Rfam assigns this 168-nucleotide RNA sequence from Medicago truncatula to the family "MIR2619 microRNA precursor family". Taxonomically the source falls in Medicago (Eukaryota, Streptophyta, Fabaceae, Trifolieae).

RNA sequence: AAACCGCCUCAUAAGUUUUACCACUGUAGCAGUUUUGGCCCUCCAAGGCAAAAAAAAAAACAAGAAGACACGUGGCACCUUACUUAGGGUGCCACGUCAGCGUAGACCAAGUCAAAAUUGGCCUUGGAGACCAAAACUGCCACAGGUGCAAAACUUAGGGGGUGGUUU
Numbered sequence: 001a002a003a004c005c006g007c008c009u010c011a012u013a014a015g016u017u018u019u020a021c022c023a024c025u026g027u028a029g030c031a032g033u034u035u036u037g038g039c040c041c042u043c044c045a046a047g048g049c050a051a052a053a054a055a056a057a058a059a060a061c062a063a064g065a066a067g068a069c070a071c072g073u074g075g076c077a078c079c080u081u082a083c084u085u086a087g088g089g090u091g092c093c094a095c096g097u098c099a100g101c102g103u104a105g106a107c108c109a110a111g112u113c114a115a116a117a118u119u120g121g122c123c124u125u126g127g128a129g130a131c132c133a134a135a136a137c138u139g140c141c142a143c144a145g146g147u148g149c150a151a152a153a154c155u156u157a158g159g160g161g162g163u164g165g166u167u168u
Stems, first nucleotide, its partner, number of pairs: 001168002004165005012157008021148001024145004029140010040129001042127002045124001070097002073094007